[Rfam]
RNA sequence: UGAACCCACGCGGGAGAGAUCGAGCGGUCACCCGACCGACUCGACGCCGAAGGAGCAAAUCCUCCCCGGAACCUCUCAGGCAAAAGGACCGCGUGGGCGAG
Number, nucleotide and partner (000 for none) at each position: 001u000002g000003a000004a000005c000006c096007c095008a094009c093010g092011c091012g090013g089014g000015a000016g000017a000018g000019a000020u044021c043022g042023a041024g000025c000026g000027g000028u000029c000030a000031c000032c000033c000034g000035a000036c000037c000038g000039a000040c000041u023042c022043g021044a020045c000046g081047c080048c079049g077050a076051a000052g000053g075054a074055g073056c000057a000058a000059a000060u068061c000062c000063u000064c000065c000066c000067c000068g060069g000070a000071a000072c000073c055074u054075c053076u050077c049078a000079g048080g047081c046082a000083a000084a000085a000086g000087g000088a000089c013090c012091g011092c010093g009094u008095g007096g006097g000098c000099g000100a000101g000
RNA: Glycine riboswitch aptamer